[Rfam]
RNA sequence: CAUGAUGGGGUUUAUAUCUCGGAUUGUAUAGAGGGUAGUUGCAGUCGCCUCAAUCCUGUUUAUUAUGAUUUUAAGUAAUCCGCUGAUAAAAUAAAUGGAAAACAAAUUUCGUGUAGAUUUGGGAAAGUUUAAAGCUGUUAAGUUUUGAACUAACUGU
Numbered sequence: 001c002a003u004g005a006u007g008g009g010g011u012u013u014a015u016a017u018c019u020c021g022g023a024u025u026g027u028a029u030a031g032a033g034g035g036u037a038g039u040u041g042c043a044g045u046c047g048c049c050u051c052a053a054u055c056c057u058g059u060u061u062a063u064u065a066u067g068a069u070u071u072u073a074a075g076u077a078a079u080c081c082g083c084u085g086a087u088a089a090a091a092u093a094a095a096u097g098g099a100a101a102a103c104a105a106a107u108u109u110c111g112u113g114u115a116g117a118u119u120u121g122g123g124a125a126a127g128u129u130u131a132a133a134g135c136u137g138u139u140a141a142g143u144u145u146u147g148a149a150c151u152a153a154c155u156g157u
Stems, first nucleotide, its partner, number of pairs: 006021006033050004041157004054099003059091002061088005067079001069077001103121007126151009
RNA: IS605-orfB-II RNA